[Rfam]
RNA: mir-8517 microRNA precursor family
Organism: Plutella xylostella
RNA sequence: CUACAGAACGUUUAGAUCUUGAACUGUUUUGUCCCUGUCUGUGAAAGAACAAUGUGUUCUUUGAUAGAGAGGGACAAAACAGUUCAAUAACUAAAACGUUCUUUAAC
Numbered sequence: 001c002u003a004c005a006g007a008a009c010g011u012u013u014a015g016a017u018c019u020u021g022a023a024c025u026g027u028u029u030u031g032u033c034c035c036u037g038u039c040u041g042u043g044a045a046a047g048a049a050c051a052a053u054g055u056g057u058u059c060u061u062u063g064a065u066a067g068a069g070a071g072g073g074a075c076a077a078a079a080c081a082g083u084u085c086a087a088u089a090a091c092u093a094a095a096a097c098g099u100u101c102u103u104u105a106a107c
Stems, first nucleotide, its partner, number of pairs: 002105002005102002011095005017089001019087009028068006048058004